RNA sequence: CUCUGGGCCGGCGCUUCAUGGGCCCAGGGCGUGAAAGAG
Numbered sequence: 001c002u003c004u005g006g007g008c009c010g011g012c013g014c015u016u017c018a019u020g021g022g023c024c025c026a027g028g029g030c031g032u033g034a035a036a037g038a039g
Stems, first nucleotide, its partner, number of pairs: 001029008
RNA: L31-Firmicutes ribosomal protein leader